[Rfam]
RNA sequence: AGACCCGAUAGAGGCGCUGUAUUUAUUAGUAAACUCCUUGAGAUAGGCAUUGAUGAAAGAAGUUGAAAGGAAAUAUGGCCGAAGUGUAUACCCUAUGCCUUAUGGUUAUGCGCUGGUCAUACAUACAACAUAUGUAUGACUGUCACACUUCAGUUGUGGAGAGCUAUCUUGUUC
Numbered sequence: 001a002g003a004c005c006c007g008a009u010a011g012a013g014g015c016g017c018u019g020u021a022u023u024u025a026u027u028a029g030u031a032a033a034c035u036c037c038u039u040g041a042g043a044u045a046g047g048c049a050u051u052g053a054u055g056a057a058a059g060a061a062g063u064u065g066a067a068a069g070g071a072a073a074u075a076u077g078g079c080c081g082a083a084g085u086g087u088a089u090a091c092c093c094u095a096u097g098c099c100u101u102a103u104g105g106u107u108a109u110g111c112g113c114u115g116g117u118c119a120u121a122c123a124u125a126c127a128a129c130a131u132a133u134g135u136a137u138g139a140c141u142g143u144c145a146c147a148c149u150u151c152a153g154u155u156g157u158g159g160a161g162a163g164c165u166a167u168c169u170u171g172u173u174c
Stems, first nucleotide, its partner, number of pairs: 007168005016079009032064004037059003083114008092105002115141011143159005149153001
This 174-nucleotide sequence from Hathewaya proteolytica belongs to the Rfam family "Lysine riboswitch aptamer". About the family: Riboswitches are metabolite binding domains within certain messenger RNAs that serve as precision sensors for their corresponding targets. The organism belongs to Hathewaya proteolytica, within Bacteria.